[Rfam]
RNA sequence: UCGUCAGUGCGGUACAUCCUGACCUGCCCCGCCCUGCGCGGGCAGCACGUGAUGAGCGCGGCGUCAUGACGCAGUGAUUACGUCACCGCCGGCGCGCGGGCCACGCAACAAAGCCCGCGCUGCCAGAGACUCUGAC
Numbered sequence: 001u002c003g004u005c006a007g008u009g010c011g012g013u014a015c016a017u018c019c020u021g022a023c024c025u026g027c028c029c030c031g032c033c034c035u036g037c038g039c040g041g042g043c044a045g046c047a048c049g050u051g052a053u054g055a056g057c058g059c060g061g062c063g064u065c066a067u068g069a070c071g072c073a074g075u076g077a078u079u080a081c082g083u084c085a086c087c088g089c090c091g092g093c094g095c096g097c098g099g100g101c102c103a104c105g106c107a108a109c110a111a112a113g114c115c116c117g118c119g120c121u122g123c124c125a126g127a128g129a130c131u132c133u134g135a136c
Base pairs, nucleotide, nucleotide: 024045025044026043028042029041030040031039032038068086071083072082075080090122091121092120095119096118097117098116099115100114

U8 small nucleolar RNA: a 136-nucleotide RNA sequence from Hippolais icterina. The match comes from Rfam's covariance-model search (48 bits). For this family Rfam cites "The U8 snoRNA gene family: identification and characterization of distinct, functional U8 genes in Xenopus" (Peculis et al., Gene, 2001). The base pairs follow the family's consensus structure, which is taken from published work. The organism belongs to Hippolais, within Eukaryota.